[Rfam]
Source information:
A member of the RNA family "c-di-AMP riboswitch aptamer (ydaO/yuaA leader)" from Dehalobacter sp. 12DCB1, 133 nucleotides long.

RNA sequence: CUAAAUGUACAGCUGAAUCCAGGUUAGCCUGGAGCGGGGGAACUUUUUUUCUGGGGUGAAUCGCAUUUGCGUAGGGCCUAUACCUUUGGUCCGAAUCCGUCAACUAACCUCGUAAGCUAAGAAAGGUGAAAAU
Numbered sequence: 001c002u003a004a005a006u007g008u009a010c011a012g013c014u015g016a017a018u019c020c021a022g023g024u025u026a027g028c029c030u031g032g033a034g035c036g037g038g039g040g041a042a043c044u045u046u047u048u049u050u051c052u053g054g055g056g057u058g059a060a061u062c063g064c065a066u067u068u069g070c071g072u073a074g075g076g077c078c079u080a081u082a083c084c085u086u087u088g089g090u091c092c093g094a095a096u097c098c099g100u101c102a103a104c105u106a107a108c109c110u111c112g113u114a115a116g117c118u119a120a121g122a123a124a125g126g127u128g129a130a131a132a133u
Base pairs, nucleotide, nucleotide: 011118012117013116014115018033019032020031021030022029034113035112036111037110038109039108044053054098055097056096062071063070064069074092075091076090077089
Its family is annotated with regulation of gene expression and cyclic-di-AMP binding in the Gene Ontology. The source organism's lineage runs through Bacteria, Bacillati, Bacillota, Desulfitobacteriaceae and Dehalobacter. A search with the family's covariance model found it, with a score of 93 bits.